Background
This 181-nucleotide RNA from Amphiprion ocellaris belongs to the Rfam family "Small nucleolar RNA SNORA23". NCBI's taxonomy places the organism under Eukaryota, Craniata, Gnathostomata, Eurypterygia, Amphiprion. The literature on the family includes a 2001 paper in EMBO J by Huttenhofer et al., "RNomics: an experimental approach that identifies 201 candidates for novel, small, non-messenger RNAs in mouse". The members of this family belong to the H/ACA class of snoRNAs which are thought to guide the sites of modification of uridines to pseudouridines. This family includes human snoRNA ACA23 (SNORA23) and mouse snoMBI-1.
[Rfam]
RNA sequence: GGUGAAUGGUGUGCACGGUGUUAGUCCAUGUCAUGUGCUGCUGCUGGUCUGUGUUUUGCAGACUUGGCAGCGGUGCUCACUCCAUACCUGCAGCCAUAGAACACCUGGAGAUCAUAGUACUGGCCCCUGACGUCUUUACAGACAUCUCAUCAUUGGCCAGCCUCCAAACUCUCCAACAGGC
Numbered sequence: 001g002g003u004g005a006a007u008g009g010u011g012u013g014c015a016c017g018g019u020g021u022u023a024g025u026c027c028a029u030g031u032c033a034u035g036u037g038c039u040g041c042u043g044c045u046g047g048u049c050u051g052u053g054u055u056u057u058g059c060a061g062a063c064u065u066g067g068c069a070g071c072g073g074u075g076c077u078c079a080c081u082c083c084a085u086a087c088c089u090g091c092a093g094c095c096a097u098a099g100a101a102c103a104c105c106u107g108g109a110g111a112u113c114a115u116a117g118u119a120c121u122g123g124c125c126c127c128u129g130a131c132g133u134c135u136u137u138a139c140a141g142a143c144a145u146c147u148c149a150u151c152a153u154u155g156g157c158c159a160g161c162c163u164c165c166a167a168a169c170u171c172u173c174c175a176a177c178a179g180g181c
Stems, first nucleotide, its partner, number of pairs: 013091003030080002035077001036075006043068002046064002050060003107174005120160006128152002132145002135142002